[Rfam]
This 96-nucleotide sequence from Pseudidiomarina piscicola belongs to the Rfam family "Tryptophan operon leader". It scores 45 bits against the family's covariance model. From the family's description: At least 6 amino acid operons are known to be regulated by attenuation. In each a leader sequence of 150-200 bp is found upstream of the first gene in the operon. This leader sequence can assume two different secondary structures known as the terminator and the anti-terminator structure. The literature on the family includes a 1982 paper in Annu Rev Genet by Kolter and Yanofsky, "Attenuation in amino acid biosynthetic operons".

RNA sequence: CAGUGGUGGUGGCAUCUCCCGAGCUAGCGGGCGAUGCAUCUGUGCGUAUUUGAAACGUAUUUCGAUGAAACCCGCUUUGUAAGCGGGUUUUUUUAU
Numbered sequence: 001c002a003g004u005g006g007u008g009g010u011g012g013c014a015u016c017u018c019c020c021g022a023g024c025u026a027g028c029g030g031g032c033g034a035u036g037c038a039u040c041u042g043u044g045c046g047u048a049u050u051u052g053a054a055a056c057g058u059a060u061u062u063c064g065a066u067g068a069a070a071c072c073c074g075c076u077u078u079g080u081a082a083g084c085g086g087g088u089u090u091u092u093u094u095a096u
Stems, first nucleotide, its partner, number of pairs: 006043004012037005018031004069089007076081001